RNA sequence: GGUGUGCGAAAGACAAACCUCUACGUGGUGCACCCUAGACAACGUAUAUUCAUACGGCAAAAAAAGUCUAU
Numbered sequence: 001g002g003u004g005u006g007c008g009a010a011a012g013a014c015a016a017a018c019c020u021c022u023a024c025g026u027g028g029u030g031c032a033c034c035c036u037a038g039a040c041a042a043c044g045u046a047u048a049u050u051c052a053u054a055c056g057g058c059a060a061a062a063a064a065a066g067u068c069u070a071u
Stems, first nucleotide, its partner, number of pairs: 001036002004033004017029003043056005
Description: Rfam assigns this 71-nucleotide RNA sequence from Rodentolepis nana to the family "HDV ribozyme from F. prausnitzii". A reference for the family is Webb et al. (2009), "Widespread occurrence of self-cleaving ribozymes", Science. The organism belongs to Rodentolepis, within Eukaryota. Its family is annotated with catalytic activity in the Gene Ontology.